[Rfam]
RNA: Small nucleolar RNA SNORA11
Organism: Phyllostomus discolor
RNA sequence: AGGGUGUGCUCAGAGCAGGGAGCCUGAAGGAAUGGCUCCUCAGUUUACAACACACCCAACAGGAGCUCGGGGCCGCUGUGUGGAAGGGCACAGAACUUGUGCCCUUCCUGUGAGCAGACGCCCUACAUAU
Numbered sequence: 001a002g003g004g005u006g007u008g009c010u011c012a013g014a015g016c017a018g019g020g021a022g023c024c025u026g027a028a029g030g031a032a033u034g035g036c037u038c039c040u041c042a043g044u045u046u047a048c049a050a051c052a053c054a055c056c057c058a059a060c061a062g063g064a065g066c067u068c069g070g071g072g073c074c075g076c077u078g079u080g081u082g083g084a085a086g087g088g089c090a091c092a093g094a095a096c097u098u099g100u101g102c103c104c105u106u107c108c109u110g111u112g113a114g115c116a117g118a119c120g121c122c123c124u125a126c127a128u129a130u
Stems, first nucleotide, its partner, number of pairs: 002057007013046004018041003022036003070123004077116003083111001085105003089101005